[Rfam]
Nucleotides: 342
Base pairs, nucleotide, nucleotide: 001338002337003336004335005334006333007332008331010329011327012307013306014305015304016303017302018301020046021045023043024042025041026040028038051325052324053323055322056321057320058319059318060216061215062214063213068246069245073212074211075210076209077208078092079091080090081089082088093107094105095104096103097102108207109206113205114204115201116200117199129148130147131144132143133142134141135140156174157173158172159171160170161169175197177194179192180191181190182189183188220264221263222262228256229255230254231253232252233251238250239249240248241247272289273288274287275286276285277284278283
Number, partner (000 for none) and nucleotide at each position: 001338u002337g003336a004335g005334u006333g007332g008331g009000c010329c011327g012307a013306a014305c015304g016303a017302c018301c019000g020046c021045g022000g023043g024042u025041g026040c027000a028038u029000u030000c031000c032000g033000a034000a035000a036000g037000g038028a039000a040026g041025u042024a043023c044000a045021u046020g047000a048000g049000g050000a051325a052324a053323g054000u055322c056321c057320g058319g059318g060216c061215u062214c063213c064000a065000u066000a067000g068246g069245g070000c071000a072000a073212g074211g075210a076209u077208a078092g079091c080090g081089g082088g083000u084000a085000a086000c087000g088082c089081c090080c091079g092078c093107c094105a095104g096103g097102g098000g099000u100000g101000a102097c103096c104095c105094u106000c107093g108207g109206a110000c111000a112000a113205g114204u115201g116200c117199a118000a119000c120000a121000g122000a123000a124000a125000u126000a127000u128000a129148c130147c131144g132143c133142c134141g135140a136000g137000c138000a139000a140135u141134c142133g143132g144131u145000a146000a147130g148129g149000g150000u151000g152000g153000a154000a155000a156174a157173g158172u159171g160170a161169g162000g163000u164000a165000a166000g167000a168000g169161c170160u171159c172158a173157c174156u175197c176000g177194u178000c179192g180191c181190a182189u183188g184000g185000a186000g187000a188183c189182a190181u191180g192179u193000u194177g195000a196000u197175g198000c199117u200116g201115u202000a203000a204114a205113c206109u207108c208077u209076a210075u211074c212073c213063g214062g215061a216060g217000c218000a219000a220264c221263g222262c223000c224000g225000u226000g227000g228256g229255a230254g231253g232252a233251c234000a235000u236000g237000u238250g239249a240248u241247u242000g243000g244000c245069c246068c247241g248240a249239u250238c251233g252232u253231c254230c255229u256228c257000g258000g259000g260000a261000g262222g263221c264220g265000g266000c267000u268000u269000g270000a271000g272289c273288c274287u275286g276285c277284c278283g279000g280000c281000a282000a283278c284277g285276g286275c287274a288273g289272g290000a291000u292000u293000a294000g295000a296000u297000a298000g299000a300000u301018g302017g303016u304015c305014g306013u307012u308000u309000a310000a311000g312000a313000c314000a315000g316000a317000a318059c319058c320057c321056g322055g323053c324052u325051u326000a327011c328000a329010g330000a331008c332007u333006c334005g335004c336003u337002c338001a339000a340000u341000a342000u
The record is a 342-nucleotide RNA sequence from Firmicutes bacterium CAG:240, which matches "Bacterial RNase P class A" in Rfam.
Rfam classes the family as a ribozyme.
Taxonomically the source falls in Bacillota (Bacteria, Bacillati).
It scores 270 bits against the family's covariance model.